[Rfam]
RNA sequence: CCCCCCGAAGCUGCUCAAAGGCAGGCCUCAGACGAGUGUGAACACGGUGUAGAGCACUAAUUCGCUUGGUACGGAUCAGAAAUGAUUCGCCGGCCUCUUAAACUCCGAAUCUGUGUUCCAUGUAGACUCUGGGAGACGGCUAACCCGCGAUAAGCGUGGGUGGCGAGAGAGAAACAACUCAGACUUCGGUUAAGGUCCCUAAGUGUUGUCUAAGUGUUAAACCGAAUGGCGUUAAAUUUCAAAGACAGUAAAAAGGUAGGCUCAGAAACAGCCACCCUAUAAUGAGUACGUAACAGUUCAUUUACUAAGAAAUUUAGCCCAGAAAAUGGACGGGGCUUAAGACAACCACCGAUACCGAAGGGUAUACUCGGCAGAGAGUAUAAUCCGGUAGGGGGGCGUGGGGCUCGAGAUAAAGCAGGACAGUAAUGCCCUGUGAAUCGUACCCCAGUGCAGAU
Numbered sequence: 001c002c003c004c005c006c007g008a009a010g011c012u013g014c015u016c017a018a019a020g021g022c023a024g025g026c027c028u029c030a031g032a033c034g035a036g037u038g039u040g041a042a043c044a045c046g047g048u049g050u051a052g053a054g055c056a057c058u059a060a061u062u063c064g065c066u067u068g069g070u071a072c073g074g075a076u077c078a079g080a081a082a083u084g085a086u087u088c089g090c091c092g093g094c095c096u097c098u099u100a101a102a103c104u105c106c107g108a109a110u111c112u113g114u115g116u117u118c119c120a121u122g123u124a125g126a127c128u129c130u131g132g133g134a135g136a137c138g139g140c141u142a143a144c145c146c147g148c149g150a151u152a153a154g155c156g157u158g159g160g161u162g163g164c165g166a167g168a169g170a171g172a173a174a175c176a177a178c179u180c181a182g183a184c185u186u187c188g189g190u191u192a193a194g195g196u197c198c199c200u201a202a203g204u205g206u207u208g209u210c211u212a213a214g215u216g217u218u219a220a221a222c223c224g225a226a227u228g229g230c231g232u233u234a235a236a237u238u239u240c241a242a243a244g245a246c247a248g249u250a251a252a253a254a255g256g257u258a259g260g261c262u263c264a265g266a267a268a269c270a271g272c273c274a275c276c277c278u279a280u281a282a283u284g285a286g287u288a289c290g291u292a293a294c295a296g297u298u299c300a301u302u303u304a305c306u307a308a309g310a311a312a313u314u315u316a317g318c319c320c321a322g323a324a325a326a327u328g329g330a331c332g333g334g335g336c337u338u339a340a341g342a343c344a345a346c347c348a349c350c351g352a353u354a355c356c357g358a359a360g361g362g363u364a365u366a367c368u369c370g371g372c373a374g375a376g377a378g379u380a381u382a383a384u385c386c387g388g389u390a391g392g393g394g395g396g397c398g399u400g401g402g403g404c405u406c407g408a409g410a411u412a413a414a415g416c417a418g419g420a421c422a423g424u425a426a427u428g429c430c431c432u433g434u435g436a437a438u439c440g441u442a443c444c445c446c447a448g449u450g451c452a453g454a455u
Stems, first nucleotide, its partner, number of pairs: 001396006011024005026135001027133006036121003040118008052106001053104002059099002064094002067092003073088006139164003143161006169180003184360007194350003203347001205346006227321003231318010248305005254278003259273003279283001284299001288297002361386002363382007397450001399447005406440003415434005421428002